HNH endonuclease-associated RNA and ORF (HEARO) RNA: a 270-nucleotide sequence from Streptosporangium roseum.
The match comes from Rfam's covariance-model search (91 bits).
RNA sequence: GUCAACGACCCUGGUCUGAAGGUCGGGGCUUGAGGUGUGCCGCACCGCGCACCGAUAGCCCCACGUUGACCAGCCCCAGCCAUCAGCUCAAGGAGGUGCAUUUUGAUGGCUACGUUGAACACAAGACAGCAGACCCACCGGCAGGUGCUUCCUCAGUCUGCCGCUCUGGAAUCCGUGGGAGCAGACACCCCGCAGGGUCGGGACGAAACGGCUCACGGACACCGCCACACGGCGGUACCUGGUGUUCAACAUGGGCGAGGGGAGACCGAG
Numbered sequence: 001g002u003c004a005a006c007g008a009c010c011c012u013g014g015u016c017u018g019a020a021g022g023u024c025g026g027g028g029c030u031u032g033a034g035g036u037g038u039g040c041c042g043c044a045c046c047g048c049g050c051a052c053c054g055a056u057a058g059c060c061c062c063a064c065g066u067u068g069a070c071c072a073g074c075c076c077c078a079g080c081c082a083u084c085a086g087c088u089c090a091a092g093g094a095g096g097u098g099c100a101u102u103u104u105g106a107u108g109g110c111u112a113c114g115u116u117g118a119a120c121a122c123a124a125g126a127c128a129g130c131a132g133a134c135c136c137a138c139c140g141g142c143a144g145g146u147g148c149u150u151c152c153u154c155a156g157u158c159u160g161c162c163g164c165u166c167u168g169g170a171a172u173c174c175g176u177g178g179g180a181g182c183a184g185a186c187a188c189c190c191c192g193c194a195g196g197g198u199c200g201g202g203a204c205g206a207a208a209c210g211g212c213u214c215a216c217g218g219a220c221a222c223c224g225c226c227a228c229a230c231g232g233c234g235g236u237a238c239c240u241g242g243u244g245u246u247c248a249a250c251a252u253g254g255g256c257g258a259g260g261g262g263a264g265a266c267c268g269a270g
Base pairs, nucleotide, nucleotide: 001070002069003068004067005066006065007064010028011027012025013024015022016021032043073256074255075254076253078111079110080109081108082107083106084105085104086103114250115249116248117247118246119245120244121243122242124240135169136168139163140162141161142160143159144158145157146156147266149264150263151262152261153260154259172219173218174217175216176215177214178213179212